[Rfam]
RNA sequence: AAUCCCCUGCUUUGCCAAAACCCUGCGUUCCACGCGGGGUACACUGUAGGCAAAGUGGGGGAUU
Numbered sequence: 001a002a003u004c005c006c007c008u009g010c011u012u013u014g015c016c017a018a019a020a021c022c023c024u025g026c027g028u029u030c031c032a033c034g035c036g037g038g039g040u041a042c043a044c045u046g047u048a049g050g051c052a053a054a055g056u057g058g059g060g061g062a063u064u
Stems, first nucleotide, its partner, number of pairs: 001064016020040009
RNA: DUF3800-VIII RNA